[Rfam]
This 118-nucleotide sequence from Neomoorella thermoacetica belongs to the Rfam family "SAM riboswitch aptamer (S box leader)".
Nucleotides: 118
Stems, first nucleotide, its partner, number of pairs: 001118008013041001015040003021031003025090001027088002042082004047078002049073007086110001091107006
Number, partner (000 for none) and nucleotide at each position: 001118c002117u003116c004115u005114u006113a007112u008111c009000g010000a011000g012000a013041g014000u015040g016039g017038u018000g019000g020000a021031g022030g023029g024000a025090c026000u027088g028087g029023c030022c031021c032000g033000a034000u035000g036000a037000a038017g039016c040015c041013c042082g043081g044080c045079a046000a047078c048077c049073c050072g051071c052070u053069c054068u055067c056000c057000u058000g059000g060000u061000u062000u063000c064000u065000c066000c067055g068054g069053g070052g071051g072050c073049g074000a075000c076000a077048g078047g079045u080044g081043c082042c083000a084000a085000u086110u087028c088027c089000u090025g091107c092106a093105g094104g095103g096102c097000a098000g099000a100000a101000g102096g103095c104094c105093c106092u107091g108000a109000g110086a111008g112007a113006u114005a115004a116003g117002g118001g
Overview
It is one of the family's seed sequences. Lineage of the source: Bacteria > Clostridia > Neomoorellales > Neomoorellaceae > Neomoorella thermoacetica.